RNA sequence: GUGCCAUGAUGUUAACUGUCAACACAUCAUUCUGAAGAAGGAUCGUGUGGAGACUUUGUGAAACUGAGCACC
Dot-bracket structure: ((((...............................................................)))).
A member of the RNA family "Small nucleolar RNA SNORD63" from Xiphorhynchus elegans, 72 nucleotides long.
Rfam links the family to the GO terms RNA processing and nucleolus.
Rfam's curators write: snoRNA U63 is found in both humans and mice.
The family's RNA type in Rfam is C/D-box small nucleolar RNA.
The family has 23 seed sequences and 795 matches in Rfam 15.1.
The family's consensus secondary structure was predicted with PFOLD.